Description
Rfam assigns this 90-nucleotide sequence from Rhodococcus gordoniae to the family "Glycine riboswitch aptamer". The source organism's lineage runs through Bacteria, Bacillati, Actinomycetota, Mycobacteriales and Rhodococcus.
RNA sequence: CGAACCGCGGCGGGAGAGUCCCGCACACAGCGGGCGCCGAAGGAGCAACCUCCCCGGGAAUCUCUCAGGCCCCCAGACCGCCACGGCGAG
Numbered sequence: 001c002g003a004a005c006c007g008c009g010g011c012g013g014g015a016g017a018g019u020c021c022c023g024c025a026c027a028c029a030g031c032g033g034g035c036g037c038c039g040a041a042g043g044a045g046c047a048a049c050c051u052c053c054c055c056g057g058g059a060a061u062c063u064c065u066c067a068g069g070c071c072c073c074c075a076g077a078c079c080g081c082c083a084c085g086g087c088g089a090g
Base pairs, nucleotide, nucleotide: 006085007084009082010081011080012079013078020034021033022032023031036070037069038068039066040065043064044063045062049057050056